[Rfam]
RNA: Group I catalytic intron
Organism: Paulinella micropora
RNA sequence: CUAUCUAUCUAUCUAUCUAUCUAUGUCAGGGCUGAUGACUACCUCCCGUAAGUUACGGUGUCAUGAGCCCUCGAUACACUCUCAAACUGCGGGAAAGUCCUGAGAGCCUUUGAUACCGCGGCCUGAUACCGCGGCCUCCGGGAAACCGAGGUGCAGCAGGCGACGUAACGGUCGUCGGAUGGUAAAAACUCAAAGGAUUGGGCAAUCCGCAGCAAAGUCCCUUCUUGUCAGGCCAACCCCGCGCAUGGCUCCUGCUCGGUACGACUACCUCCUUGGUUGGCUGCCUUGGACUGACUUGUGUUCCGACGUGAGUUUUAGUGACCAGUGGCUACGGCAAACGGCCACUACUCUCGACGUCGGCCCACUUAUGUCAGCACUGCAGCUGGCCCGGUAGUCCUCCGUCGCCACUACCCAGUGGUGUCCUGACAAAUGGGAAAGGUUCAGAGACUAAAUGGGAGUGGGGAUUUCCCUGUGUGCUGGUAGGCACUUUAGCAGGGAGGUCUUUAAGAUAUAGUCCAACCCACGCGAAAGGCGGG
Numbered sequence: 001c002u003a004u005c006u007a008u009c010u011a012u013c014u015a016u017c018u019a020u021c022u023a024u025g026u027c028a029g030g031g032c033u034g035a036u037g038a039c040u041a042c043c044u045c046c047c048g049u050a051a052g053u054u055a056c057g058g059u060g061u062c063a064u065g066a067g068c069c070c071u072c073g074a075u076a077c078a079c080u081c082u083c084a085a086a087c088u089g090c091g092g093g094a095a096a097g098u099c100c101u102g103a104g105a106g107c108c109u110u111u112g113a114u115a116c117c118g119c120g121g122c123c124u125g126a127u128a129c130c131g132c133g134g135c136c137u138c139c140g141g142g143a144a145a146c147c148g149a150g151g152u153g154c155a156g157c158a159g160g161c162g163a164c165g166u167a168a169c170g171g172u173c174g175u176c177g178g179a180u181g182g183u184a185a186a187a188a189c190u191c192a193a194a195g196g197a198u199u200g201g202g203c204a205a206u207c208c209g210c211a212g213c214a215a216a217g218u219c220c221c222u223u224c225u226u227g228u229c230a231g232g233c234c235a236a237c238c239c240c241g242c243g244c245a246u247g248g249c250u251c252c253u254g255c256u257c258g259g260u261a262c263g264a265c266u267a268c269c270u271c272c273u274u275g276g277u278u279g280g281c282u283g284c285c286u287u288g289g290a291c292u293g294a295c296u297u298g299u300g301u302u303c304c305g306a307c308g309u310g311a312g313u314u315u316u317a318g319u320g321a322c323c324a325g326u327g328g329c330u331a332c333g334g335c336a337a338a339c340g341g342c343c344a345c346u347a348c349u350c351u352c353g354a355c356g357u358c359g360g361c362c363c364a365c366u367u368a369u370g371u372c373a374g375c376a377c378u379g380c381a382g383c384u385g386g387c388c389c390g391g392u393a394g395u396c397c398u399c400c401g402u403c404g405c406c407a408c409u410a411c412c413c414a415g416u417g418g419u420g421u422c423c424u425g426a427c428a429a430a431u432g433g434g435a436a437a438g439g440u441u442c443a444g445a446g447a448c449u450a451a452a453u454g455g456g457a458g459u460g461g462g463g464a465u466u467u468c469c470c471u472g473u474g475u476g477c478u479g480g481u482a483g484g485c486a487c488u489u490u491a492g493c494a495g496g497g498a499g500g501u502c503u504u505u506a507a508g509a510u511a512u513a514g515u516c517c518a519a520c521c522c523a524c525g526c527g528a529a530a531g532g533c534g535g536g
Stems, first nucleotide, its partner, number of pairs: 006025003011020002077460005083454002088211006098202003102198001212440002218434003226428007444517001446516005462503009522534001524532001526531001